Plastid-psbA-1 3UTR RNA: a 121-nucleotide RNA sequence from Jatropha curcas. The base pairs follow the family's consensus structure, which was predicted with LocARNA. About the family: Plastid psbA-1 is a non-coding RNA (ncRNA) present in plastids. It was identified in inverted repeat sequences in the 3 prime untranslate region (3UTR) of photosystem II quinone-binding protein (psbA). The source organism's lineage runs through Eukaryota, Embryophyta, Tracheophyta, Euphorbiaceae and Jatropha. It scores 95 bits against the family's covariance model. It is annotated as a cis-regulatory element.

RNA sequence: UCGAAGCUCCAUCUAUAAAUGGAUAAGACUUCGAUCUUAGUGUGUACGAGUUCUUGAAAACUAUAAAAAAAGGAUCAAUACCAACCCUUUUGAUAAAAGAAGAAAUUGGUAUUGCUCCUUC
Numbered sequence: 001u002c003g004a005a006g007c008u009c010c011a012u013c014u015a016u017a018a019a020u021g022g023a024u025a026a027g028a029c030u031u032c033g034a035u036c037u038u039a040g041u042g043u044g045u046a047c048g049a050g051u052u053c054u055u056g057a058a059a060a061c062u063a064u065a066a067a068a069a070a071a072g073g074a075u076c077a078a079u080a081c082c083a084a085c086c087c088u089u090u091u092g093a094u095a096a097a098a099g100a101a102g103a104a105a106u107u108g109g110u111a112u113u114g115c116u117c118c119u120u121c
Stems, first nucleotide, its partner, number of pairs: 008023005070120005076114006083107002088103004